Small nucleolar RNA SNORD14: a 120-nucleotide RNA from Triticum aestivum. The family's consensus secondary structure was predicted with PFOLD. The literature on the family includes a 1996 paper in Nucleic Acids Res by Samarsky et al., "An essential domain in Saccharomyces cerevisiae U14 snoRNA is absent in vertebrates, but conserved in other yeasts". A search with the family's covariance model found it, with a score of 87 bits. It is annotated as a C/D-box small nucleolar RNA.
Nucleotides: 120
Base pairs, nucleotide, nucleotide: 002119003118004117059084060083061082062081063080064079
Number, partner (000 for none) and nucleotide at each position: 001000c002119g003118g004117u005000g006000a007000u008000g009000a010000u011000g012000a013000u014000a015000a016000a017000u018000u019000u020000a021000a022000g023000g024000u025000u026000g027000u028000u029000u030000c031000u032000c033000a034000a035000a036000a037000c038000a039000u040000u041000c042000g043000c044000a045000g046000a047000u048000g049000c050000c051000g052000c053000c054000u055000a056000a057000g058000a059084g060083c061082u062081u063080u064079c065000g066000c067000c068000a069000a070000g071000c072000c073000a074000g075000g076000c077000u078000u079064g080063a081062g082061a083060g084059c085000u086000a087000a088000u089000g090000c091000u092000g093000c094000u095000a096000a097000u098000u099000c100000c101000u102000u103000c104000c105000u106000u107000g108000g109000a110000u111000g112000u113000c114000u115000g116000a117004g118003c119002c120000u